[Rfam]
RNA sequence: GAGCCCGGAGGUCAUCAUCCGCCAGCGAGUUUCGCCCGCGGAUGUCGUCAUU
Numbered sequence: 001g002a003g004c005c006c007g008g009a010g011g012u013c014a015u016c017a018u019c020c021g022c023c024a025g026c027g028a029g030u031u032u033c034g035c036c037c038g039c040g041g042a043u044g045u046c047g048u049c050a051u052u
Stems, first nucleotide, its partner, number of pairs: 016044007025035004
This 52-nucleotide sequence from Breoghania corrubedonensis belongs to the Rfam family "ffh sRNA".
The family's consensus secondary structure is taken from published work.
Taxonomically the source falls in Breoghania (Bacteria, Pseudomonadati, Alphaproteobacteria, Hyphomicrobiales).
On this family, see Meyer et al., BMC Genomics 2009: "Identification of candidate structured RNAs in the marine organism 'Candidatus Pelagibacter ubique'".